About this RNA
The record is a 91-nucleotide sequence from Dracunculus medinensis, which matches "mir-81 microRNA precursor family" in Rfam. NCBI's taxonomy places the organism under Eukaryota, Eumetazoa, Protostomia, Spirurina, Dracunculus. A search with the family's covariance model found it, with a score of 66 bits. The family has 10 seed sequences and 68 matches in Rfam 15.1. The family's consensus secondary structure was predicted with RNAalifold.
[Rfam]
RNA sequence: AGGUAAUUGGCAUUCAGGCCUUCACUGUGGUCUGCAGAAUGAAUUUGAAAUAUUAUCUGAGAUCAUUGUGAAAGCUAUUUGCCAUUUUGCC
Numbered sequence: 001a002g003g004u005a006a007u008u009g010g011c012a013u014u015c016a017g018g019c020c021u022u023c024a025c026u027g028u029g030g031u032c033u034g035c036a037g038a039a040u041g042a043a044u045u046u047g048a049a050a051u052a053u054u055a056u057c058u059g060a061g062a063u064c065a066u067u068g069u070g071a072a073a074g075c076u077a078u079u080u081g082c083c084a085u086u087u088u089g090c091c
Stems, first nucleotide, its partner, number of pairs: 009083004017076003021072005028065006036058003039053002
Dot-bracket structure: ........((((....(((.(((((..((((((..(((((...........))..))).))))))..))))).)))...))))........